[Rfam]
RNA sequence: AGGGCCUGGGGAUGGCUGCUGGCGGCUGUGUCUCAGCCUGGUGCCUGCUGGCCUUACCCGUGCCCCAGAUCAACCUCCAGAGGUCCCCCUGCUGGGUUCCUCCUAUGCAGUAACAGGUGUGAGCAUCCAUGCAGCAUUCUGAUGGUCAUGUAUGAUACUGCACACAACG
Numbered sequence: 001a002g003g004g005c006c007u008g009g010g011g012a013u014g015g016c017u018g019c020u021g022g023c024g025g026c027u028g029u030g031u032c033u034c035a036g037c038c039u040g041g042u043g044c045c046u047g048c049u050g051g052c053c054u055u056a057c058c059c060g061u062g063c064c065c066c067a068g069a070u071c072a073a074c075c076u077c078c079a080g081a082g083g084u085c086c087c088c089c090u091g092c093u094g095g096g097u098u099c100c101u102c103c104u105a106u107g108c109a110g111u112a113a114c115a116g117g118u119g120u121g122a123g124c125a126u127c128c129a130u131g132c133a134g135c136a137u138u139c140u141g142a143u144g145g146u147c148a149u150g151u152a153u154g155a156u157a158c159u160g161c162a163c164a165c166a167a168c169g
Stems, first nucleotide, its partner, number of pairs: 003064003008059003014053004018048002021045003024038005076096005082090002104164001106162007114154002120148003124144004131138001
The family of this 169-nucleotide RNA sequence from Gallus gallus is "Small Cajal body specific RNA 16".
Rfam's curators put it in the seed alignment.
The family's RNA type in Rfam is small Cajal body RNA.
The base pairs follow the family's consensus structure, which was predicted with RNAfold.
On this family, see Darzacq et al., EMBO J 2002: "Cajal body-specific small nuclear RNAs: a novel class of 2'-O-methylation and pseudouridylation guide RNAs".
Its family is annotated with RNA processing and nucleolus in the Gene Ontology.